[Rfam]
RNA sequence: CUGACGCUGGCCCUGCCGGCUCCUCAGAUGCAGCUGCUCUCCUGCACCUGUGACACUGGGGCUAAGAGGAAGCGGCCGUUUCUACGCUCAGUGCUCAGAACAGUGAGCACUCCAUGGUUUGUAGCCGAACAUGC
Numbered sequence: 001c002u003g004a005c006g007c008u009g010g011c012c013c014u015g016c017c018g019g020c021u022c023c024u025c026a027g028a029u030g031c032a033g034c035u036g037c038u039c040u041c042c043u044g045c046a047c048c049u050g051u052g053a054c055a056c057u058g059g060g061g062c063u064a065a066g067a068g069g070a071a072g073c074g075g076c077c078g079u080u081u082c083u084a085c086g087c088u089c090a091g092u093g094c095u096c097a098g099a100a101c102a103g104u105g106a107g108c109a110c111u112c113c114a115u116g117g118u119u120u121g122u123a124g125c126c127g128a129a130c131a132u133g134c
Stems, first nucleotide, its partner, number of pairs: 003063001005061001007059004025050003074126003082117003092109006
Overview:
Shown here is a 134-nucleotide sequence from Panthera tigris, a member of the family "Small nucleolar RNA SNORA43". ACA43 is a member of the H/ACA class of snoRNA that guide the sites of modification of uridines to pseudouridines. The source organism's lineage runs through Eukaryota, Gnathostomata, Mammalia, Theria and Panthera tigris. Clan: SNORA17 clan. A search with the family's covariance model found it, with a score of 104 bits.